mir-8813 microRNA precursor family: a 97-nucleotide RNA from Canis lupus. The base pairs follow the family's consensus structure, which was predicted with RNAalifold. NCBI's taxonomy places the organism under Eukaryota, Eutheria, Laurasiatheria, Canis, Canis lupus. Rfam links the family to the GO terms miRNA-mediated post-transcriptional gene silencing and RISC complex. A search with the family's covariance model found it, with a score of 69 bits.

RNA sequence: UGGUGACCUGAGGUUCCCUGGCUGUCACUCUGUCCUAGUCCAUUCUGGCUCACGGGGCACAGGAUGAGUCCCAGUAUAGUCUGUGGGGUCCUGAUCC
Numbered sequence: 001u002g003g004u005g006a007c008c009u010g011a012g013g014u015u016c017c018c019u020g021g022c023u024g025u026c027a028c029u030c031u032g033u034c035c036u037a038g039u040c041c042a043u044u045c046u047g048g049c050u051c052a053c054g055g056g057g058c059a060c061a062g063g064a065u066g067a068g069u070c071c072c073a074g075u076a077u078a079g080u081c082u083g084u085g086g087g088g089u090c091c092u093g094a095u096c097c
Stems, first nucleotide, its partner, number of pairs: 002096003005090005011082005021075004027069004033063002038058004